[Rfam]
RNA sequence: GUCGCGCCUAGGCUGAUCACCGAAACGCCGGCACCUUCACCGGCUUGGCGCGACUUCCUCGCUUGAAGG
Numbered sequence: 001g002u003c004g005c006g007c008c009u010a011g012g013c014u015g016a017u018c019a020c021c022g023a024a025a026c027g028c029c030g031g032c033a034c035c036u037u038c039a040c041c042g043g044c045u046u047g048g049c050g051c052g053a054c055u056u057c058c059u060c061g062c063u064u065g066a067a068g069g
Stems, first nucleotide, its partner, number of pairs: 001054008011021002027044005034069006
Shown here is a 69-nucleotide RNA sequence from a Betaproteobacteria bacterium, a member of the family "int-alpA RNA".
Taxonomically the source falls in Betaproteobacteria (Bacteria, Pseudomonadati, Pseudomonadota).
A search with the family's covariance model found it, with a score of 50 bits.